[Rfam]
RNA sequence: AAUUAAAUCGGCGAUGGAGUUCGCCAUUAAAUGCAUAAGAUGCUAAUGACUCCUACUCUUAU
Numbered sequence: 001a002a003u004u005a006a007a008u009c010g011g012c013g014a015u016g017g018a019g020u021u022c023g024c025c026a027u028u029a030a031a032u033g034c035a036u037a038a039g040a041u042g043c044u045a046a047u048g049a050c051u052c053c054u055a056c057u058c059u060u061a062u
Stems, first nucleotide, its partner, number of pairs: 010025004016053006033043003
Dot-bracket structure: .........[[[[..((((((]]]].......(((.....)))....)))))).........